[Rfam]
RNA: MIR398 microRNA precursor family
Organism: Brassica napus
RNA sequence: AGGACCUCGACAGGGUGGACAUGAGAACACAUGUGUAUUCAAAGGCUGUAAUGACGCCACGUCACUGUAACGUACAUCUCUCUUUUCAUGUGUUCUCAGGUCACCCCUGCUGAGCUCUU
Numbered sequence: 001a002g003g004a005c006c007u008c009g010a011c012a013g014g015g016u017g018g019a020c021a022u023g024a025g026a027a028c029a030c031a032u033g034u035g036u037a038u039u040c041a042a043a044g045g046c047u048g049u050a051a052u053g054a055c056g057c058c059a060c061g062u063c064a065c066u067g068u069a070a071c072g073u074a075c076a077u078c079u080c081u082c083u084u085u086u087c088a089u090g091u092g093u094u095c096u097c098a099g100g101u102c103a104c105c106c107c108u109g110c111u112g113a114g115c116u117c118u119u
Stems, first nucleotide, its partner, number of pairs: 007113002011109004018102002023097010